[Rfam]
RNA sequence: GUUGGUGUGAUGAUGAAGUCUAAUAUUAGGACUAGAGUUUCUGAUCUGGGCUUUACCCAGAAGUUGAAGACUAACCCUUGGCUGUCUGAGCACCAGC
Number, nucleotide and partner (000 for none) at each position: 001g097002u096003u095004g094005g093006u092007g091008u090009g000010a000011u000012g000013a000014u000015g000016a000017a000018g000019u000020c000021u000022a000023a000024u000025a000026u000027u000028a000029g000030g000031a000032c000033u000034a000035g000036a000037g000038u069039u068040u067041c066042u000043g000044a000045u062046c060047u059048g058049g057050g056051c000052u000053u000054u000055a000056c050057c049058c048059a047060g046061a000062a045063g000064u000065u000066g041067a040068a039069g038070a000071c000072u000073a000074a000075c000076c000077c000078u000079u000080g000081g000082c000083u000084g000085u000086c000087u000088g000089a000090g008091c007092a006093c005094c004095a003096g002097c001
RNA: Small nucleolar RNA Z157/R69/R10